[Rfam]
RNA sequence: GGAGUCAGCCAGGCAAUCGCUGCUGCGUUCGCGCAGGGGAGGAAAGUCCGGGCUCCGCAGGGCAGGGUGCCAGAUAACGUCUGGGCGACGAAAGUCGACGGCAAGUGCAACAGAAAAUAUACCGCCUAAGCAGCUUUAGGGUUGCCGGUAAGGUUGAAAUGGUGCGGUAAGAGCGCACCGCGUGGGUGGCAACAUUCCACGGCAUGGUAAACCCCACUCGGAGCAAGACCAAAUAGGGACCCUUAAGGCGUGGCCCGCGCCGGGUCCGGGUAGGUUGCUUGAGGUCUGUGGUGACGCAGACCCUAGAUGAAUGAUUGUCCACGACAAAACCCGGCUUAUCGGCUGACUCCCACU
Number, nucleotide and partner (000 for none) at each position: 001g350002g349003a348004g347005u346006c345007a344008g343009c342010c341011a339012g319013g318014c317015a316016a315017u314018c313019g000020c039021u038022g000023c036024u035025g034026c033027g032028u000029u000030c000031g000032c027033g026034c025035a024036g023037g000038g021039g020040a000041g000042g000043a000044a337045a336046g335047u000048c334049c333050g332051g331052g330053c223054u222055c221056c220057g000058c000059a000060g256061g255062g254063c253064a000065g219066g218067g217068u216069g215070c084071c083072a082073g081074a080075u000076a000077a000078c000079g000080u074081c073082u072083g071084g070085g099086c097087g096088a095089c094090g000091a000092a000093a000094g089095u088096c087097g086098a000099c085100g214101g213102c000103a000104a000105g212106u211107g208108c207109a000110a000111c000112a000113g000114a000115a000116a000117a000118u000119a000120u000121a000122c153123c152124g149125c148126c147127u000128a000129a000130g145131c144132a143133g142134c141135u140136u000137u000138a000139g000140g135141g134142u133143u132144g131145c130146c000147g126148g125149u124150a000151a000152g123153g122154u000155u000156g000157a000158a000159a000160u000161g179162g178163u177164g176165c175166g174167g000168u000169a000170a000171g000172a000173g000174c166175g165176c164177a163178c162179c161180g203181c201182g200183u199184g198185g197186g195187u194188g193189g000190c000191a000192a000193c188194a187195u186196u000197c185198c184199a183200c182201g181202g000203c180204a000205u000206g000207g108208u107209a000210a000211a106212c105213c101214c100215c069216a068217c067218u066219c065220g056221g055222a054223g053224c000225a000226a000227g276228a275229c274230c273231a000232a000233a000234u000235a000236g000237g267238g266239a265240c264241c263242c262243u000244u000245a000246a000247g261248g260249c259250g258251u257252g000253g063254c062255c061256c060257g251258c250259g249260c248261c247262g242263g241264g240265u239266c238267c237268g000269g000270g000271u000272a000273g230274g229275u228276u227277g000278c000279u000280u000281g000282a000283g302284g301285u300286c299287u298288g297289u296290g295291g000292u000293g000294a000295c290296g289297c288298a287299g286300a285301c284302c283303c000304u000305a000306g000307a000308u000309g000310a000311a000312u000313g018314a017315u016316u015317g014318u013319c012320c000321a000322c000323g000324a000325c000326a000327a000328a000329a000330c052331c051332c050333g049334g048335c046336u045337u044338a000339u011340c000341g010342g009343c008344u007345g006346a005347c004348u003349c002350c001351c000352a000353c000354u000
RNA: Bacterial RNase P class A
Organism: Marinobacterium lutimaris